This 63-nucleotide RNA from Thiopseudomonas denitrificans belongs to the Rfam family "Pseudomonas sRNA P26". It is annotated as a non-coding RNA gene. The organism belongs to Thiopseudomonas, within Bacteria. Rfam's curators write: This small RNA (sRNA) was computationally identified in the genome of the opportunistic pathogen Pseudomonas aeruginosa and its expression verified by northern blot analysis. P26 is conserved across many Gammaproteobacteria species and appears to be consistently located between the DNA directed RNA polymerase (beta subunit) and 50S ribosomal protein L7/L12 genes.

[Rfam]
RNA sequence: GACUAUGCAAAACAGCCCUUGCGCAAGCACAGGCUGAUGGCUGGUGGCUUUUGCCACCGGCCU
Numbered sequence: 001g002a003c004u005a006u007g008c009a010a011a012a013c014a015g016c017c018c019u020u021g022c023g024c025a026a027g028c029a030c031a032g033g034c035u036g037a038u039g040g041c042u043g044g045u046g047g048c049u050u051u052u053g054c055c056a057c058c059g060g061c062c063u
Stems, first nucleotide, its partner, number of pairs: 013036005021028002039062010